[Rfam]
RNA sequence: GCAGUAGGUAGAGGUCGCGUGUUUCAAGAUUAGGCGGUCGGAUGUGUCAGGCACAGACGAAGGCCGCUGAAAGGGGAAGACGCCGAAAGGGUCAGAGGCCUGGAUUCUGAUUCUUGGGCAUGGGCUGAAGAAGUUCAUGACUGUCAUCGAAAGAUGGAGAGCUAUCUGAUUG
Number, nucleotide and partner (000 for none) at each position: 001g000002c000003a000004g000005u000006a167007g166008g165009u164010a163011g162012a000013g000014g000015u000016c000017g083018c082019g081020u080021g000022u078023u077024u076025c075026a000027a000028g000029a000030u000031u000032a000033g068034g067035c066036g065037g064038u063039c062040g000041g000042a000043u000044g000045u000046g000047u000048c000049a000050g000051g000052c000053a000054c000055a000056g000057a000058c000059g000060a000061a000062g039063g038064c037065c036066g035067c034068u033069g000070a000071a000072a000073g000074g000075g025076g024077a023078a022079g000080a020081c019082g018083c017084c000085g000086a000087a115088a114089g113090g112091g111092u110093c109094a108095g107096a106097g105098g000099c000100c000101u000102g000103g000104a000105u097106u096107c095108u094109g093110a092111u091112u090113c089114u088115u087116g142117g141118g000119c139120a138121u137122g136123g135124g134125c133126u132127g000128a000129a000130g000131a000132a126133g125134u124135u123136c122137a121138u120139g119140a000141c117142u116143g000144u157145c156146a155147u154148c153149g000150a000151a000152a000153g148154a147155u146156g145157g144158a000159g000160a000161g000162c011163u010164a009165u008166c007167u006168g000169a000170u000171u000172g000
Overview:
This 172-nucleotide RNA from Lachnospiraceae bacterium OF09-33XD belongs to the Rfam family "Lysine riboswitch aptamer". Rfam describes the family as follows. Riboswitches are metabolite binding domains within certain messenger RNAs that serve as precision sensors for their corresponding targets. Pairs were carried over by alignment from the consensus structure, which is taken from published work. The match comes from Rfam's covariance-model search (111 bits).